Shown here is a 78-nucleotide sequence from Strongylocentrotus purpuratus, a member of the family "mir-981 microRNA precursor family".
The source organism's lineage runs through Eukaryota, Eumetazoa, Deuterostomia, Echinidea and Strongylocentrotus.
The family's consensus secondary structure was predicted with RNAalifold.
A reference for the family is Berezikov et al. (2010), "Evolutionary flux of canonical microRNAs and mirtrons in Drosophila", Nat Genet.
RNA sequence: UAUUAUCCACGGGUUUCGCUGAUAUCGCACAGUUCUUUUAAUGUCUCUGUUCGUUGUCAACGAAACCUGCGGUUAUUG
Numbered sequence: 001u002a003u004u005a006u007c008c009a010c011g012g013g014u015u016u017c018g019c020u021g022a023u024a025u026c027g028c029a030c031a032g033u034u035c036u037u038u039u040a041a042u043g044u045c046u047c048u049g050u051u052c053g054u055u056g057u058c059a060a061c062g063a064a065a066c067c068u069g070c071g072g073u074u075a076u077u078g
Base pairs, nucleotide, nucleotide: 001078002077010069011068012067013066014065015064016063017062018061027052029050030049031048
Dot-bracket structure: ((.......(((((((((........(.(((................))).)........))))))))).......))